[Rfam]
This 87-nucleotide RNA from Mola mola belongs to the Rfam family "mir-135 microRNA precursor family".
A reference for the family is Kim et al. (2004), "Identification of many microRNAs that copurify with polyribosomes in mammalian neurons", Proc Natl Acad Sci U S A.
The organism belongs to Mola, within Eukaryota.
RNA sequence: CCACAGUUGUGUCUUAUGGCUUUCUAUUCCUAUGUGAGUUCUGUCUAACACGUCAUGUAGGGUUCAAAGCCAUCGGAUCCGCAGUGG
Numbered sequence: 001c002c003a004c005a006g007u008u009g010u011g012u013c014u015u016a017u018g019g020c021u022u023u024c025u026a027u028u029c030c031u032a033u034g035u036g037a038g039u040u041c042u043g044u045c046u047a048a049c050a051c052g053u054c055a056u057g058u059a060g061g062g063u064u065c066a067a068a069g070c071c072a073u074c075g076g077a078u079c080c081g082c083a084g085u086g087g
Stems, first nucleotide, its partner, number of pairs: 002086003006082001008081002011078004016073008026064001028062010
Record summary:
The match comes from Rfam's covariance-model search (63 bits).